A member of the RNA family "Purine riboswitch aptamer" from Pullulanibacillus pueri, 102 nucleotides long. The source organism's lineage runs through Bacteria, Bacillati, Bacilli, Caryophanales and Pullulanibacillus. The family's consensus secondary structure is taken from published work.

[Rfam]
RNA sequence: AACAUUAAAAUAAAUGUCCUUCGUAUAUGCUCGUGAAUAUGGCGCGAGUGUUUCUACCAGAUCACCGUAAACGGUCUGACUAUGAAGGUGGAUUUCCUUUAU
Numbered sequence: 001a002a003c004a005u006u007a008a009a010a011u012a013a014a015u016g017u018c019c020u021u022c023g024u025a026u027a028u029g030c031u032c033g034u035g036a037a038u039a040u041g042g043c044g045c046g047a048g049u050g051u052u053u054c055u056a057c058c059a060g061a062u063c064a065c066c067g068u069a070a071a072c073g074g075u076c077u078g079a080c081u082a083u084g085a086a087g088g089u090g091g092a093u094u095u096c097c098u099u100u101a102u
Stems, first nucleotide, its partner, number of pairs: 018088008029049007058078006